RNA: Plastid-psbN 5UTR RNA
Organism: Olea europaea
Nucleotides: 061
Base pairs, nucleotide, nucleotide: 017045018044019043021041023039024038025037026036027035
Number, partner (000 for none) and nucleotide at each position: 001000u002000g003000a004000g005000a006000a007000a008000c009000c010000a011000g012000u013000c014000a015000a016000a017045g018044g019043a020000a021041u022000c023039g024038u025037u026036u027035c028000c029000c030000a031000c032000c033000c034000g035027g036026g037025a038024g039023c040000u041021a042000c043019u044018u045017u046000a047000a048000c049000a050000u051000a052000u053000u054000c055000u056000g057000a058000a059000u060000u061000c